[Rfam]
RNA sequence: GAUCUGGACAAGAAGCUGCUUCGUAGUAUACAAACGGUUCAAACCAAUAAGCUAUGGGGAAAGUCUCUGAGCAAUUCUCGCCGAAAGGGCGCACGGGAAAUCCGAUGAAAUAUCAAGAUCUAAUCUGUGCGUAGUACAUUUGGAUCUUCAUAUCAUCCAUGCCGUCAUCCAUUCAGUCAAUGCAGCUAAUGAAAAACAUUUACAAAAUAGAGCUUAUCCAUGUACCAGAU
Numbered sequence: 001g002a003u004c005u006g007g008a009c010a011a012g013a014a015g016c017u018g019c020u021u022c023g024u025a026g027u028a029u030a031c032a033a034a035c036g037g038u039u040c041a042a043a044c045c046a047a048u049a050a051g052c053u054a055u056g057g058g059g060a061a062a063g064u065c066u067c068u069g070a071g072c073a074a075u076u077c078u079c080g081c082c083g084a085a086a087g088g089g090c091g092c093a094c095g096g097g098a099a100a101u102c103c104g105a106u107g108a109a110a111u112a113u114c115a116a117g118a119u120c121u122a123a124u125c126u127g128u129g130c131g132u133a134g135u136a137c138a139u140u141u142g143g144a145u146c147u148u149c150a151u152a153u154c155a156u157c158c159a160u161g162c163c164g165u166c167a168u169c170c171a172u173u174c175a176g177u178c179a180a181u182g183c184a185g186c187u188a189a190u191g192a193a194a195a196a197c198a199u200u201u202a203c204a205a206a207a208u209a210g211a212g213c214u215u216a217u218c219c220a221u222g223u224a225c226c227a228g229a230u
Stems, first nucleotide, its partner, number of pairs: 002230006008223003014187006021057007037044002061215003065212004079091004092107002096103002110151002115148006122140003127137004189199003

A member of the RNA family "RNase MRP" from Theileria annulata, 230 nucleotides long. Its Rfam clan is "RNaseP clan". Rfam classes the family as a ribozyme. RNase MRP is an enzymatically active ribonucleoprotein with two distinct roles in eukaryotes.